A member of the RNA family "Small nucleolar RNA SNORA8" from Chaetops frenatus, 136 nucleotides long. Taxonomically the source falls in Chaetops (Eukaryota, Teleostomi, Tetrapoda, Archosauria). The family's consensus secondary structure was predicted with RNAfold. About the family: ACA8 is a member of the H/ACA class of snoRNA that guide the sites of modification of uridines to pseudouridines.

RNA sequence: UGCAGUGUUACAGUACUUGCAUCCAGCAGCCUUCAGGUGGGAUGUUCAAAAACAGUGCUACAGCAGUGCAGAGAUUGGCAUCCUUGGUUUUCAUUCUGCUCUGUCUGUUAAACCUGGUAUUUUUUCUCAAACAGUC
Dot-bracket structure: .(((.((.........(((((((((.(.(....).).).))))))....)).)).)))...((.(((.(((.....((((.....................))))........)))..))).))............